A member of the RNA family "tRNA" from Endocarpon pusillum, 71 nucleotides long.
From the family's description: Transfer RNA (tRNA) molecules are approximately 80 nucleotides in length.
Pairs were carried over by alignment from the consensus structure, which is taken from published work.
A search with the family's covariance model found it, with a score of 46 bits.
Lineage of the source: Eukaryota > Opisthokonta > Fungi > Chaetothyriomycetidae > Endocarpon.
By type it is a transfer RNA.
[Rfam]
Nucleotides: 071
Stems, first nucleotide, its partner, number of pairs: 001070001003068005010024004026042005047063005
Number, partner (000 for none) and nucleotide at each position: 001070g002000u003068g004067g005066a006065u007064a008000u009000a010024g011023u012022u013021c014000a015000a016000u017000g018000g019000c020000a021013g022012a023011a024010c025000a026042a027041c028040u029039g030038u031000a032000u033000g034000u035000g036000g037000c038030a039029u040028a041027g042026u043000c044000u045000a046000u047063c048062c049061u050060u051059g052000u053000u054000c055000a056000a057000a058000u059051c060050a061049g062048g063047g064007u065006a066005u067004c068003c069000u070001c071000c